Plastid-rps18 3UTR RNA: a 57-nucleotide RNA from Durio zibethinus. For this family Rfam cites "Retrograde signaling in plants: A critical review focusing on the GUN pathway and beyond" (Richter et al., Plant Commun, 2023).
RNA sequence: UGCAAGUAUUUUACUAUUAAGAAGCAUGUGUUUCUAGUACAUAUCGUUUAUUAAUCU
Numbered sequence: 001u002g003c004a005a006g007u008a009u010u011u012u013a014c015u016a017u018u019a020a021g022a023a024g025c026a027u028g029u030g031u032u033u034c035u036a037g038u039a040c041a042u043a044u045c046g047u048u049u050a051u052u053a054a055u056c057u
Base pairs, nucleotide, nucleotide: 018037020035021034022033023032024031025030
About the family: Plastid rps18 is a non-coding RNA (ncRNA) present in plastids. It was identified as a short stem-loop motif in the 3 prime untranslate region (3UTR) of rps18 gene. The match comes from Rfam's covariance-model search (63 bits). Rfam classes the family as a cis-regulatory element.